[Rfam]
RNA sequence: GUGUCGGCUGGAGAUGGCAUUUUUCCCUAACAGCCGCUGAUCGUGCGCGGCUGAUGAUGCCUACAGGUUC
Numbered sequence: 001g002u003g004u005c006g007g008c009u010g011g012a013g014a015u016g017g018c019a020u021u022u023u024u025c026c027c028u029a030a031c032a033g034c035c036g037c038u039g040a041u042c043g044u045g046c047g048c049g050g051c052u053g054a055u056g057a058u059g060c061c062u063a064c065a066g067g068u069u070c
Stems, first nucleotide, its partner, number of pairs: 010026004016061006033051004

Shown here is a 70-nucleotide RNA sequence from Paraburkholderia diazotrophica, a member of the family "Fluoride riboswitch aptamer (crcB RNA motif)". The match comes from Rfam's covariance-model search (41 bits). The source organism's lineage runs through Bacteria, Pseudomonadota, Betaproteobacteria, Burkholderiales and Paraburkholderia. The family's consensus secondary structure is taken from published work.